Source information
The record is a 100-nucleotide RNA from Sporomusa acidovorans, which matches "Pyrrolysine insertion sequence mttB" in Rfam. The family's consensus secondary structure was predicted with CMfinder. Rfam 15.1 lists 416 matches to the family in 326 species. For this family Rfam cites "Effects of using coding potential, sequence conservation and mRNA structure conservation for predicting pyrroly-sine containing genes" (Theil Have et al., BMC Bioinformatics, 2013). NCBI's taxonomy places the organism under Bacteria, Bacillati, Negativicutes, Sporomusaceae, Sporomusa acidovorans. The match comes from Rfam's covariance-model search (91 bits).
RNA sequence: UAGACUGAUAGCAAAGUCCCCGAUGCCCAAGCAGCCCAUGAAUUUACCCUCACAGCCUUAUUACCGGCGUUAGCCGGUGCUAAUAUGAUUUACGGCUUAG
Numbered sequence: 001u002a003g004a005c006u007g008a009u010a011g012c013a014a015a016g017u018c019c020c021c022g023a024u025g026c027c028c029a030a031g032c033a034g035c036c037c038a039u040g041a042a043u044u045u046a047c048c049c050u051c052a053c054a055g056c057c058u059u060a061u062u063a064c065c066g067g068c069g070u071u072a073g074c075c076g077g078u079g080c081u082a083a084u085a086u087g088a089u090u091u092a093c094g095g096c097u098u099a100g
Base pairs, nucleotide, nucleotide: 003012025032033062034061077098079096080095